[Rfam]
Nucleotides: 111
Base pairs, nucleotide, nucleotide: 008097009096010095011061012060013059014058016055017031018030019029020028021027038054039053040052041051042050067092068091069090073086074085075084076083
Number, partner (000 for none) and nucleotide at each position: 001000u002000u003000a004000g005000a006000a007000u008097u009096g010095u011061a012060g013059g014058g015000g016055g017031a018030c019029c020028g021027g022000u023000g024000u025000u026000g027021c028020c029019g030018g031017u032000u033000g034000a035000g036000a037000u038054u039053a040052c041051a042050u043000c044000c045000u046000u047000g048000a049000g050042a051041u052040g053039u054038g055016c056000g057000a058014c059013u060012c061011u062000u063000a064000g065000a066000a067092c068091c069090u070000g071000a072000u073086c074085u075084g076083g077000u078000u079000g080000a081000u082000a083076c084075c085074a086073g087000c088000g089000g090069a091068g092067g093000g094000a095010a096009c097008a098000u099000a100000u101000u102000c103000u104000u105000g106000a107000a108000c109000a110000a111000u
The record is a 111-nucleotide RNA sequence from Psychrobacillus glaciei, which matches "TPP riboswitch aptamer (THI element)" in Rfam.